[Rfam]
RNA: Fluoride riboswitch aptamer (crcB RNA motif)
RNA sequence: GUCCAAUAAGGCGAUGGAGUUCGCCAUAACUGUCUCAUGCAGACUAAUGACUCCUACCAGUGA
Numbered sequence: 001g002u003c004c005a006a007u008a009a010g011g012c013g014a015u016g017g018a019g020u021u022c023g024c025c026a027u028a029a030c031u032g033u034c035u036c037a038u039g040c041a042g043a044c045u046a047a048u049g050a051c052u053c054c055u056a057c058c059a060g061u062g063a
Stems, first nucleotide, its partner, number of pairs: 010025004016054006032044004